[Rfam]
Shown here is a 102-nucleotide sequence from Orenia marismortui, a member of the family "Purine riboswitch aptamer".
Nucleotides: 102
Stems, first nucleotide, its partner, number of pairs: 019087007029049001031047005058078007
Number, partner (000 for none) and nucleotide at each position: 001000c002000u003000g004000u005000a006000a007000c008000a009000g010000u011000c012000g013000a014000a015000u016000a017000u018000a019087c020086c021085u022084c023083a024082u025081a026000u027000a028000a029049u030000a031047g032046u033045g034044a035043g036000a037000a038000u039000a040000a041000g042000g043035c044034u045033c046032a047031c048000a049029a050000g051000u052000u053000u054000c055000u056000a057000c058078c059077g060076g061075g062074u063073a064072g065000c066000c067000g068000u069000a070000a071000a072064c073063u074062a075061c076060c077059u078058g079000c080000c081025u082024a083023u084022g085021a086020g087019g088000g089000a090000a091000g092000u093000g094000u095000a096000c097000c098000u099000a100000g101000g102000g
A search with the family's covariance model found it, with a score of 84 bits. The family's consensus secondary structure is taken from published work.